[Rfam]
RNA: ManX 5' UTR thermometer
Organism: Yersinia ruckeri
RNA sequence: UCAAUAUGUACCGCAGGGACGCGCCAGUAGUCAUUGAUUUUUAUUACGUGCCAGAACUCAAUCCUGAGUUAACUGAGGGGGUAGCGAGUGAGUAUAGCUAUUAUCAUCGGCACACAC
Numbered sequence: 001u002c003a004a005u006a007u008g009u010a011c012c013g014c015a016g017g018g019a020c021g022c023g024c025c026a027g028u029a030g031u032c033a034u035u036g037a038u039u040u041u042u043a044u045u046a047c048g049u050g051c052c053a054g055a056a057c058u059c060a061a062u063c064c065u066g067a068g069u070u071a072a073c074u075g076a077g078g079g080g081g082u083a084g085c086g087a088g089u090g091a092g093u094a095u096a097g098c099u100a101u102u103a104u105c106a107u108c109g110g111c112a113c114a115c116a117c
Base pairs, nucleotide, nucleotide: 024110025109027107028106030104031103033099034097035096036095038092039091040090041088042087044084045083046082049080051078055070056069057068058067059066060065